Record summary
A member of the RNA family "Guanidine-II riboswitch aptamer (mini-ykkC)" from Devosia sp. Root685, 45 nucleotides long. It scores 40 bits against the family's covariance model. About the family: Simpler in structure and has fewer highly conserved nucleotide positions than the ykkC-yxkD leader. Despite this each of its two stem-loop structures directly bind free guanidine.
RNA sequence: CCAUCGGGACGACCUGAUGGCAUGGGGCGAAACGGGGACGACCCU
Numbered sequence: 001c002c003a004u005c006g007g008g009a010c011g012a013c014c015u016g017a018u019g020g021c022a023u024g025g026g027g028c029g030a031a032a033c034g035g036g037g038a039c040g041a042c043c044c045u
Base pairs, nucleotide, nucleotide: 001020002019003018004017005016006015007014008013034045035044036043037042